[Rfam]
RNA sequence: GAUCAAGAAGUUCGGCCCCCAAGCCCCUUGACUGGCCAACUGGCAACCCGGGAUUCGCCCCGCGGUGCCCUCAAGGGAAGAUCUGCCCGGUGACAUAUUCCGCGCCGGGAACGCUGCGAU
Dot-bracket structure: ((((....(..(.(((.....((........)).))).).)(((..((..((......))...)).)))..........))))..(((((((..........)))))))...........